[Rfam]
RNA: DUF805 RNA
Organism: Salegentibacter flavus
RNA sequence: AAAAAGUGGAGUUCAGAAACCACUAUAAAAAACGAGGCGAAACCGAAAAGCCUUACGAUUAGGAAACUU
Numbered sequence: 001a002a003a004a005a006g007u008g009g010a011g012u013u014c015a016g017a018a019a020c021c022a023c024u025a026u027a028a029a030a031a032a033c034g035a036g037g038c039g040a041a042a043c044c045g046a047a048a049a050g051c052c053u054u055a056c057g058a059u060u061a062g063g064a065a066a067c068u069u
Stems, first nucleotide, its partner, number of pairs: 006023004036052003043063002